[Rfam]
RNA sequence: GUUUUUGGAUAACUGCGUGAUACCUUUGGUAUCAUGAGGAAAGUCCAUGCUCGCACGGGCUGCGAUGCCCGUAGUGUUUGUGCUUGGUGAAACAAUAAACCAAGGUAGGAGUGUCAUGCCUAACGGCUGAAGAAAGUGCUAAGUCUUUUGAUAUGCAUGAGUAUUCUGUAAAAGUGCCAAAGAGACGAGACUUACUGGAAACGGUAAGAUUGGAACGUGGUAAACCCCUCAAGCGAGCAACCCAAACUUAUGGUCGGGGCACUUGACUAGCCGAAUUGAAGGCGUGGUCGAGGGGGAAGUUUUCUUCCCCAGACAGAUGGUUAUCGACGGUCGCAAGACCUGAACAAAACAUGGCUUAUAGAA
Numbered sequence: 001g002u003u004u005u006u007g008g009a010u011a012a013c014u015g016c017g018u019g020a021u022a023c024c025u026u027u028g029g030u031a032u033c034a035u036g037a038g039g040a041a042a043g044u045c046c047a048u049g050c051u052c053g054c055a056c057g058g059g060c061u062g063c064g065a066u067g068c069c070c071g072u073a074g075u076g077u078u079u080g081u082g083c084u085u086g087g088u089g090a091a092a093c094a095a096u097a098a099a100c101c102a103a104g105g106u107a108g109g110a111g112u113g114u115c116a117u118g119c120c121u122a123a124c125g126g127c128u129g130a131a132g133a134a135a136g137u138g139c140u141a142a143g144u145c146u147u148u149u150g151a152u153a154u155g156c157a158u159g160a161g162u163a164u165u166c167u168g169u170a171a172a173a174g175u176g177c178c179a180a181a182g183a184g185a186c187g188a189g190a191c192u193u194a195c196u197g198g199a200a201a202c203g204g205u206a207a208g209a210u211u212g213g214a215a216c217g218u219g220g221u222a223a224a225c226c227c228c229u230c231a232a233g234c235g236a237g238c239a240a241c242c243c244a245a246a247c248u249u250a251u252g253g254u255c256g257g258g259g260c261a262c263u264u265g266a267c268u269a270g271c272c273g274a275a276u277u278g279a280a281g282g283c284g285u286g287g288u289c290g291a292g293g294g295g296g297a298a299g300u301u302u303u304c305u306u307c308c309c310c311a312g313a314c315a316g317a318u319g320g321u322u323a324u325c326g327a328c329g330g331u332c333g334c335a336a337g338a339c340c341u342g343a344a345c346a347a348a349a350c351a352u353g354g355c356u357u358a359u360a361g362a363a
Base pairs, nucleotide, nucleotide: 004363005362006361007359008325009324010323011322012321013320014319016036017035018034019033020032021031041357042356043355045354046353047352048351049350050237051236052235053234054233055072056071057070058069059068060067078232079231080230082228083104084103085102086101087100088099105124106122107121108120109119111117125227126226129166130165131164136158137157138156139155143152144151145150174225175224176221177220178219191208192207193206194205195204196203197202241258242257243256262292263291264290265289266288267287268286293310294309295308296307297306298305329340330339331338332337
This 363-nucleotide RNA from Lactococcus garvieae belongs to the Rfam family "Bacterial RNase P class B". The family's RNA type in Rfam is ribozyme. Rfam's curators write: Ribonuclease P (RNase P) is a ubiquitous endoribonuclease, found in archaea, bacteria and eukarya as well as chloroplasts and mitochondria. The source organism's lineage runs through Bacteria, Bacillota, Streptococcaceae, Lactococcus and Lactococcus garvieae.